This 68-nucleotide RNA from Acyrthosiphon pisum belongs to the Rfam family "mir-34 microRNA precursor family". Lineage of the source: Eukaryota > Metazoa > Ecdysozoa > Allotriocarida > Acyrthosiphon. It is one of the family's seed sequences. A reference for the family is Lim et al. (2003), "Vertebrate microRNA genes", Science. The family is grouped with related families in Rfam's "mir-34 clan". Rfam 15.1 lists 2,256 matches to the family in 820 species.

RNA sequence: UGGCAGUGUGAUUAGCUGGUUGUGUACAUAUUUGAUAUUAUACUCACGGCCACUAAGCACAUUCCACU
Numbered sequence: 001u002g003g004c005a006g007u008g009u010g011a012u013u014a015g016c017u018g019g020u021u022g023u024g025u026a027c028a029u030a031u032u033u034g035a036u037a038u039u040a041u042a043c044u045c046a047c048g049g050c051c052a053c054u055a056a057g058c059a060c061a062u063u064c065c066a067c068u
Stems, first nucleotide, its partner, number of pairs: 002064001005063006012056004017052008
Dot-bracket structure: .(..((((((.((((.((((((((....................)))))))))))).)))))))....